Shown here is a 74-nucleotide RNA from Myotis myotis, a member of the family "mir-9193 microRNA precursor family". The base pairs follow the family's consensus structure, which was predicted with RNAalifold. The family has 2 seed sequences and 6,008 matches in Rfam 15.1. A search with the family's covariance model found it, with a score of 56 bits.
[Rfam]
RNA sequence: CAUGUACUGGUGGGGUCCCUCGGCUUGGCCUGCGGACAUCCGCAGGCCAGGCCGAAGGACCUCACCUGUGCACU
Numbered sequence: 001c002a003u004g005u006a007c008u009g010g011u012g013g014g015g016u017c018c019c020u021c022g023g024c025u026u027g028g029c030c031u032g033c034g035g036a037c038a039u040c041c042g043c044a045g046g047c048c049a050g051g052c053c054g055a056a057g058g059a060c061c062u063c064a065c066c067u068g069u070g071c072a073c074u
Base pairs, nucleotide, nucleotide: 003072004071006069009066010065012063013062014061015060016059017058018057020055021054022053023052024051025050027048028047029046030045031044032043033042034041